[Rfam]
RNA sequence: UGAUGACAAAUCUCCGGAAUCUCUGUAUUUUCUUGAUGAAUCCUUUGAACCCUUUUUCUGAUGACUGCUUUUGUUGAUC
Number, nucleotide and partner (000 for none) at each position: 001u000002g079003a078004u077005g000006a075007c000008a000009a000010a000011u000012c000013u000014c000015c000016g000017g000018a000019a000020u000021c000022u000023c000024u000025g000026u000027a000028u000029u000030u000031u000032c000033u000034u000035g000036a000037u000038g000039a000040a000041u000042c000043c000044u000045u000046u000047g000048a000049a000050c000051c000052c000053u000054u000055u000056u000057u000058c000059u000060g000061a000062u000063g000064a000065c000066u000067g000068c000069u000070u000071u000072u000073g000074u000075u006076g000077a004078u003079c002
Small nucleolar RNA MBII-202: a 79-nucleotide RNA sequence from Lates calcarifer. A search with the family's covariance model found it, with a score of 68 bits. On this family, see Huttenhofer et al., EMBO J 2001: "RNomics: an experimental approach that identifies 201 candidates for novel, small, non-messenger RNAs in mouse". The family has 30 seed sequences and 745 matches in Rfam 15.1. Pairs were carried over by alignment from the consensus structure, which was predicted with PFOLD. The source organism's lineage runs through Eukaryota, Bilateria, Neoteleostei, Eurypterygia and Lates.